[Rfam]
RNA: L17-Actino-Proteobacteria ribosomal protein leader
Organism: Streptomyces sp. CNT360
RNA sequence: CCCGCGUCCCUCUCGGGGCGCGGGUCCGUAUCCCCGGUACCUGAUACGGCCGGGACUG
Numbered sequence: 001c002c003c004g005c006g007u008c009c010c011u012c013u014c015g016g017g018g019c020g021c022g023g024g025u026c027c028g029u030a031u032c033c034c035c036g037g038u039a040c041c042u043g044a045u046a047c048g049g050c051c052g053g054g055a056c057u058g
Stems, first nucleotide, its partner, number of pairs: 001024009027058002033054006